[Rfam]
RNA sequence: ACUGCCCCCAGAGGCGUUGCAGGUGUGGCUGCGUUUGUGUCACAUUUGUGUCAUUCGGCGGCAGAGAGAAGGGAGGCUUGUCUACGCCCAGCGUUCCGGCUGCAGAACGUCUGGAUGAUUAAUAGCCUGACAGC
Numbered sequence: 001a002c003u004g005c006c007c008c009c010a011g012a013g014g015c016g017u018u019g020c021a022g023g024u025g026u027g028g029c030u031g032c033g034u035u036u037g038u039g040u041c042a043c044a045u046u047u048g049u050g051u052c053a054u055u056c057g058g059c060g061g062c063a064g065a066g067a068g069a070a071g072g073g074a075g076g077c078u079u080g081u082c083u084a085c086g087c088c089c090a091g092c093g094u095u096c097c098g099g100c101u102g103c104a105g106a107a108c109g110u111c112u113g114g115a116u117g118a119u120u121a122a123u124a125g126c127c128u129g130a131c132a133g134c
Base pairs, nucleotide, nucleotide: 002064003063004062005061006060007058008057010055011054013052014051015050019049020048021047022046024044025043026042027041028040029039071131074128075127076126077125078124079122085117086116088114089113090112091111092109093108094107095106096105

Shown here is a 134-nucleotide RNA sequence from Felis catus, a member of the family "Small nucleolar RNA SNORA17". The source organism's lineage runs through Eukaryota, Craniata, Eutheria, Feliformia and Felis. Its Rfam clan is "SNORA17 clan". Rfam links the family to the GO terms RNA processing and nucleolus. By type it is an H/ACA-box small nucleolar RNA. Rfam's curators write: snoRNA ACA 17 belongs to the H/ACA family of snoRNAs and is predicted to guide pseudouridylation of the 28S rRNA at positions U4659 and U4598. It shares the same host gene together with ACA43. A reference for the family is Ofengand and Bakin (1997), "Mapping to nucleotide resolution of pseudouridine residues in large subunit ribosomal RNAs from representative eukaryotes, prokaryotes, archaebacteria, mitochondria and chloroplasts", J Mol Biol. The base pairs follow the family's consensus structure, which was predicted with RNAalifold.